Description:
The record is a 75-nucleotide RNA sequence from Gryllotalpicola protaetiae, which matches "Fluoride riboswitch aptamer (crcB RNA motif)" in Rfam. Gene Ontology terms of the family: response to fluoride and positive regulation of gene expression. The base pairs follow the family's consensus structure, which is taken from published work. The organism belongs to Gryllotalpicola, within Bacteria.

RNA sequence: AUCAAGGUCGGCGAUGGAUCCCGCCGGAGUCCGACGACUCGAAGCGCCUGCCUGGCUGAUGGUUCCUGCCUUGGG
Numbered sequence: 001a002u003c004a005a006g007g008u009c010g011g012c013g014a015u016g017g018a019u020c021c022c023g024c025c026g027g028a029g030u031c032c033g034a035c036g037a038c039u040c041g042a043a044g045c046g047c048c049u050g051c052c053u054g055g056c057u058g059a060u061g062g063u064u065c066c067u068g069c070c071u072u073g074g075g
Stems, first nucleotide, its partner, number of pairs: 010025004016066003020062002046056003